[Rfam]
RNA sequence: GAUUUCCGUUGGUGUAAAUUCAAUCAACUGAAUUAAAGAUGAUAAGAAAUUCUCCAUUGAUAACAAAUGUUUUAUCCAUUAAGCGGAUGAAAUCUUAU
Numbered sequence: 001g002a003u004u005u006c007c008g009u010u011g012g013u014g015u016a017a018a019u020u021c022a023a024u025c026a027a028c029u030g031a032a033u034u035a036a037a038g039a040u041g042a043u044a045a046g047a048a049a050u051u052c053u054c055c056a057u058u059g060a061u062a063a064c065a066a067a068u069g070u071u072u073u074a075u076c077c078a079u080u081a082a083g084c085g086g087a088u089g090a091a092a093u094c095u096u097a098u
Base pairs, nucleotide, nucleotide: 009023010022011021012020053087054086055085056079057078059076060075061074062073063072